A member of the RNA family "small nucleolar RNA snoR114" from Dioscorea zingiberensis, 86 nucleotides long. The match comes from Rfam's covariance-model search (58 bits). Gene Ontology terms of the family: nucleolus and RNA processing. It is annotated as a C/D-box small nucleolar RNA. The base pairs follow the family's consensus structure, which was predicted with RNAalifold. For this family Rfam cites "Mining small RNA sequencing data: a new approach to identify small nucleolar RNAs in Arabidopsis" (Chen and Wu, Nucleic Acids Res, 2009). Lineage of the source: Eukaryota > Streptophyta > Mesangiospermae > Liliopsida > Dioscorea.
[Rfam]
RNA sequence: GAGCAAUGAAGAAUUAAUGCACCAGUGAUGGAUUAGAUUCUAUCACACCCUUCUGAUCACCAGAUGAAACUAGCAUAUCUGAGCUC
Numbered sequence: 001g002a003g004c005a006a007u008g009a010a011g012a013a014u015u016a017a018u019g020c021a022c023c024a025g026u027g028a029u030g031g032a033u034u035a036g037a038u039u040c041u042a043u044c045a046c047a048c049c050c051u052u053c054u055g056a057u058c059a060c061c062a063g064a065u066g067a068a069a070c071u072a073g074c075a076u077a078u079c080u081g082a083g084c085u086c
Stems, first nucleotide, its partner, number of pairs: 001086004